[Rfam]
RNA sequence: UCCCGCUGCCCUCCUUGGGCGUUUCCUCCCUAGACUUCGGGCCGCUCCUUCGGGAGUGGCCUUUUUUCUUGAUCCGG
Numbered sequence: 001u002c003c004c005g006c007u008g009c010c011c012u013c014c015u016u017g018g019g020c021g022u023u024u025c026c027u028c029c030c031u032a033g034a035c036u037u038c039g040g041g042c043c044g045c046u047c048c049u050u051c052g053g054g055a056g057u058g059g060c061c062u063u064u065u066u067u068c069u070u071g072a073u074c075c076g077g
Stems, first nucleotide, its partner, number of pairs: 008020004039062009
RNA: Makes More Granules Regulator RNA (mmgR)
Organism: Methylobacterium planeticum